The family of this 77-nucleotide sequence from Clostridioides difficile is "Fluoride riboswitch aptamer (crcB RNA motif)". It scores 42 bits against the family's covariance model. The family's consensus secondary structure is taken from published work. NCBI's taxonomy places the organism under Bacteria, Bacillati, Clostridia, Peptostreptococcaceae, Clostridioides. For this family Rfam cites "Fluoride ion encapsulation by Mg2+ ions and phosphates in a fluoride riboswitch" (Ren et al., Nature, 2012).
[Rfam]
RNA sequence: AAUAAUUAUGGGAAUGAGGUUCUCCCUUGGAUGAUAAUAUCCUAAACUGCCAAUGAGCUGAUGACUUCUAUGAUAUC
Numbered sequence: 001a002a003u004a005a006u007u008a009u010g011g012g013a014a015u016g017a018g019g020u021u022c023u024c025c026c027u028u029g030g031a032u033g034a035u036a037a038u039a040u041c042c043u044a045a046a047c048u049g050c051c052a053a054u055g056a057g058c059u060g061a062u063g064a065c066u067u068c069u070a071u072g073a074u075a076u077c
Stems, first nucleotide, its partner, number of pairs: 010026004016068006049058002